Rfam assigns this 132-nucleotide RNA sequence from Myotis davidii to the family "Small nucleolar RNA SNORA9". From the family's description: ACA9 is a member of the H/ACA class of snoRNA that guide the sites of modification of uridines to pseudouridines. The base pairs follow the family's consensus structure, which was predicted with PFOLD. It scores 106 bits against the family's covariance model. NCBI's taxonomy places the organism under Eukaryota, Bilateria, Deuterostomia, Eutheria, Myotis. Rfam classes the family as an H/ACA-box small nucleolar RNA. The family is grouped with related families in Rfam's "SNORA9 clan".
Nucleotides: 132
Base pairs, nucleotide, nucleotide: 003059004058005057006056007055017043018042019041023036024035025034026033071124072123073122074121085111086110087109088108090106092104093103094102
Number, partner (000 for none) and nucleotide at each position: 001000c002000u003059g004058c005057a006056a007055g008000c009000c010000u011000c012000u013000a014000g015000u016000g017043u018042g019041c020000u021000u022000g023036g024035g025034u026033c027000u028000g029000g030000g031000g032000u033026g034025a035024u036023c037000g038000u039000a040000u041019g042018c043017a044000u045000u046000u047000c048000u049000a050000c051000a052000g053000u054000u055007c056006u057005u058004g059003c060000a061000a062000g063000a064000a065000u066000a067000u068000u069000u070000g071124g072123a073122a074121a075000c076000a077000g078000u079000u080000u081000g082000a083000g084000g085111c086110c087109u088108u089000u090106c091000c092104c093103u094102g095000c096000u097000g098000c099000g100000u101000c102094c103093g104092g105000a106090g107000c108088a109087a110086g111085g112000u113000a114000a115000u116000a117000g118000a119000a120000g121074u122073u123072u124071c125000a126000a127000a128000a129000a130000g131000u132000c